A member of the RNA family "c-di-AMP riboswitch aptamer (ydaO/yuaA leader)" from Corynebacterium sp. 13CS0277, 180 nucleotides long. The match comes from Rfam's covariance-model search (75 bits). Rfam describes the family as follows. This family represents a conserved RNA structure found upstream of the ydaO and yuaA genes in Bacillus subtilis and related genes in other bacteria.
[Rfam]
RNA sequence: UUUGAUACCUUUCCGCGCCGCCCACCGAUGGGCCGCGGGCCGGGGAACCAACAAUUCCUCUGGGGUGAAUCCUCUUCAACGAUUCAAGAGCCAGCCGCACAGCCUGGUGGAGAGAAGAGGUAGGGAGCUUUCUGUUUCCGAACCCGACAGCUAACCCGGUAGGAAAAAGGAAGAUUUGGA
Numbered sequence: 001u002u003u004g005a006u007a008c009c010u011u012u013c014c015g016c017g018c019c020g021c022c023c024a025c026c027g028a029u030g031g032g033c034c035g036c037g038g039g040c041c042g043g044g045g046a047a048c049c050a051a052c053a054a055u056u057c058c059u060c061u062g063g064g065g066u067g068a069a070u071c072c073u074c075u076u077c078a079a080c081g082a083u084u085c086a087a088g089a090g091c092c093a094g095c096c097g098c099a100c101a102g103c104c105u106g107g108u109g110g111a112g113a114g115a116a117g118a119g120g121u122a123g124g125g126a127g128c129u130u131u132c133u134g135u136u137u138c139c140g141a142a143c144c145c146g147a148c149a150g151c152u153a154a155c156c157c158g159g160u161a162g163g164a165a166a167a168a169g170g171a172a173g174a175u176u177u178g179g180a
Stems, first nucleotide, its partner, number of pairs: 011165004018038003039160006049062002063145003071120007123139004
Dot-bracket structure: ..........((((...(((...............)))((((((....((..........))(((.....(((((((....................................)))))))..((((.........))))...))).........)))))).))))...............